[Rfam]
The family of this 108-nucleotide RNA sequence is "Actinomyces-1 RNA".
RNA sequence: AUCACCACCGGACGGAACUGGUCGUGAGGGUUGGGGAACCUGUUGACCGGCCAGGACCGAGACGUGCGAGGGUCCCAGGGAGCCCAAGCAGUCGCUCUGGCGAAGGAG
Numbered sequence: 001a002u003c004a005c006c007a008c009c010g011g012a013c014g015g016a017a018c019u020g021g022u023c024g025u026g027a028g029g030g031u032u033g034g035g036g037a038a039c040c041u042g043u044u045g046a047c048c049g050g051c052c053a054g055g056a057c058c059g060a061g062a063c064g065u066g067c068g069a070g071g072g073u074c075c076c077a078g079g080g081a082g083c084c085c086a087a088g089c090a091g092u093c094g095c096u097c098u099g100g101c102g103a104a105g106g107a108g
Base pairs, nucleotide, nucleotide: 006102008100009099010098011097012096013059014058015057018054019053020052021051022050023049024048028041029040030039031038032037061093062092063091065090066089070085071084072083073082
It is one of the family's seed sequences. Rfam classes the family as a small RNA. Pairs were carried over by alignment from the consensus structure, which is taken from published work.